[Rfam]
RNA: mir-160 microRNA precursor family
RNA sequence: AUGUGCCUGGCUCCCUGUAUGCCACUCGUGUAGGUCUCAAUCUUUCCCUGAGAUUGGCUACUGCGGUUGGCGUGCGAGGAGCCAAGCAUGC
Numbered sequence: 001a002u003g004u005g006c007c008u009g010g011c012u013c014c015c016u017g018u019a020u021g022c023c024a025c026u027c028g029u030g031u032a033g034g035u036c037u038c039a040a041u042c043u044u045u046c047c048c049u050g051a052g053a054u055u056g057g058c059u060a061c062u063g064c065g066g067u068u069g070g071c072g073u074g075c076g077a078g079g080a081g082c083c084a085a086g087c088a089u090g091c
Stems, first nucleotide, its partner, number of pairs: 002090005008084007016076009027065003